A member of the RNA family "Small nucleolar RNA SNORA77" from Tyrannus savana, 132 nucleotides long. ACA63 (SNORA77) is a member of the H/ACA class of snoRNAs that guide the sites of modification of uridines to pseudouridines. This snoRNA was identified by computational screening and its expression in mouse experimentally verified by Northern blot and primer extension analysis. ACA63 is proposed to guide the pseudouridylation of 18S rRNA U814.
RNA sequence: GCAGACUCACUCUGUGCUGAACUGCAGCCUUCAGUUCAGGUGCUUUUCUGUCUGCAAGAGUAACAGCCCACUCGAGUGACCCUGGCCUUCUUUGCUGUAGAAGGCUGUUACAGUUGCUGUUGGGACAGUGCU
Numbered sequence: 001g002c003a004g005a006c007u008c009a010c011u012c013u014g015u016g017c018u019g020a021a022c023u024g025c026a027g028c029c030u031u032c033a034g035u036u037c038a039g040g041u042g043c044u045u046u047u048c049u050g051u052c053u054g055c056a057a058g059a060g061u062a063a064c065a066g067c068c069c070a071c072u073c074g075a076g077u078g079a080c081c082c083u084g085g086c087c088u089u090c091u092u093u094g095c096u097g098u099a100g101a102a103g104g105c106u107g108u109u110a111c112a113g114u115u116g117c118u119g120u121u122g123g124g125a126c127a128g129u130g131c132u
Stems, first nucleotide, its partner, number of pairs: 001055006014043003017039004022034003067123002070120002073116001075114001077112002083107009

About this RNA: Its family is annotated with RNA processing and nucleolus in the Gene Ontology. The source organism's lineage runs through Eukaryota, Opisthokonta, Amniota, Neognathae and Tyrannus.